Rfam assigns this 217-nucleotide RNA from Pseudovibrio axinellae to the family "permuted transfer-messenger RNA".
The match comes from Rfam's covariance-model search (151 bits).
The family's RNA type in Rfam is non-coding RNA gene.
RNA sequence: GGCAAUAAAUUGUGAGCGCAAUAAACCAUUCGGACCCGGGGGCGGUACCCGGCGCCUCCACCAAAGCCCGUUGUACUCCAGCGGUCUUCGGGGGGGCGAAAUAGGAUCGACGAGGGCGUAAAGGCUUUACUUUUGCUCGGCAUGGUACCACCGAUAUCGGACCACAAUGAUAGUUGCAAAUGACAACUACGCUAUGGACAACGCUGUAGCUGCGUAA
Numbered sequence: 001g002g003c004a005a006u007a008a009a010u011u012g013u014g015a016g017c018g019c020a021a022u023a024a025a026c027c028a029u030u031c032g033g034a035c036c037c038g039g040g041g042g043c044g045g046u047a048c049c050c051g052g053c054g055c056c057u058c059c060a061c062c063a064a065a066g067c068c069c070g071u072u073g074u075a076c077u078c079c080a081g082c083g084g085u086c087u088u089c090g091g092g093g094g095g096g097c098g099a100a101a102u103a104g105g106a107u108c109g110a111c112g113a114g115g116g117c118g119u120a121a122a123g124g125c126u127u128u129a130c131u132u133u134u135g136c137u138c139g140g141c142a143u144g145g146u147a148c149c150a151c152c153g154a155u156a157u158c159g160g161a162c163c164a165c166a167a168u169g170a171u172a173g174u175u176g177c178a179a180a181u182g183a184c185a186a187c188u189a190c191g192c193u194a195u196g197g198a199c200a201a202c203g204c205u206g207u208a209g210c211u212g213c214g215u216a217a
Stems, first nucleotide, its partner, number of pairs: 001137005014127004026116002030113003036052005053098007138153003